[Rfam]
RNA sequence: GUCGGGAGGGCGGCUAAUACAACACCCGCAAGGGGAAUACGCCCGCCGGCUGUUAGCGGUUUCGAGCCUCCCGACUUCCCGUC
Numbered sequence: 001g002u003c004g005g006g007a008g009g010g011c012g013g014c015u016a017a018u019a020c021a022a023c024a025c026c027c028g029c030a031a032g033g034g035g036a037a038u039a040c041g042c043c044c045g046c047c048g049g050c051u052g053u054u055a056g057c058g059g060u061u062u063c064g065a066g067c068c069u070c071c072c073g074a075c076u077u078c079c080c081g082u083c
Stems, first nucleotide, its partner, number of pairs: 001075009012043003015039002025034003045060004
RNA: sRNA-Xcc1
Organism: Xanthomonas oryzae